[Rfam]
RNA sequence: UCGUGAGUCGUCGCUGGCCUGAUGCCAUCGCGACGCGCUUCGCCCGGCUGCAUAUGAGCCGGGCGGAGUUUCAUCAGAAAAAAGGAA
Numbered sequence: 001u002c003g004u005g006a007g008u009c010g011u012c013g014c015u016g017g018c019c020u021g022a023u024g025c026c027a028u029c030g031c032g033a034c035g036c037g038c039u040u041c042g043c044c045c046g047g048c049u050g051c052a053u054a055u056g057a058g059c060c061g062g063g064c065g066g067a068g069u070u071u072c073a074u075c076a077g078a079a080a081a082a083a084g085g086a087a
Base pairs, nucleotide, nucleotide: 007034008033009032010031011030013029015027017025018024035071037069038068039067040066041065042064043063044062045061046060047059048058049057
Rfam assigns this 87-nucleotide sequence from Pseudomonas fulva to the family "gyrA RNA". It is annotated as a cis-regulatory element. The source organism's lineage runs through Bacteria, Gammaproteobacteria, Pseudomonadales, Pseudomonadaceae and Pseudomonas fulva.